[Rfam]
RNA sequence: UUUGAUCACUAUGAUGUAAUAUUUCGGAUGUAAAUUACAAAUUUCCGAGAGCGCAAAACCUUGUGGAGAUAUCCGUUGCCUUCCUUCUGAUUGAUCAA
Numbered sequence: 001u002u003u004g005a006u007c008a009c010u011a012u013g014a015u016g017u018a019a020u021a022u023u024u025c026g027g028a029u030g031u032a033a034a035u036u037a038c039a040a041a042u043u044u045c046c047g048a049g050a051g052c053g054c055a056a057a058a059c060c061u062u063g064u065g066g067a068g069a070u071a072u073c074c075g076u077u078g079c080c081u082u083c084c085u086u087c088u089g090a091u092u093g094a095u096c097a098a
Stems, first nucleotide, its partner, number of pairs: 003097003025075004
RNA: Small nucleolar RNA Z13/snr52
Organism: Ascodesmis nigricans